Shown here is a 131-nucleotide sequence from Phyllostomus discolor, a member of the family "Small nucleolar RNA SNORA38".

[Rfam]
RNA sequence: CCCUCCUCCAAAGGCAUGUCUGCGGGUCCCUGUCCUUGGACACCUAGGAAUCGGAGGCAGACAAAUGUGGACUUGCAGAAGUUUGGGGACUGCCUGGUCCCUGCAGGCUCAAGGUCAACCAUUUCACAUAG
Numbered sequence: 001c002c003c004u005c006c007u008c009c010a011a012a013g014g015c016a017u018g019u020c021u022g023c024g025g026g027u028c029c030c031u032g033u034c035c036u037u038g039g040a041c042a043c044c045u046a047g048g049a050a051u052c053g054g055a056g057g058c059a060g061a062c063a064a065a066u067g068u069g070g071a072c073u074u075g076c077a078g079a080a081g082u083u084u085g086g087g088g089a090c091u092g093c094c095u096g097g098u099c100c101c102u103g104c105a106g107g108c109u110c111a112a113g114g115u116c117a118a119c120c121a122u123u124u125c126a127c128a129u130a131g
Stems, first nucleotide, its partner, number of pairs: 002057005017042005024030002069124003073121001092108005

Rfam links the family to the GO terms nucleolus, Cajal body and RNA processing. The family's RNA type in Rfam is H/ACA-box small nucleolar RNA. ACA38 is a member of the H/ACA class of snoRNA that guide the sites of modification of uridines to pseudouridines. The match comes from Rfam's covariance-model search (109 bits).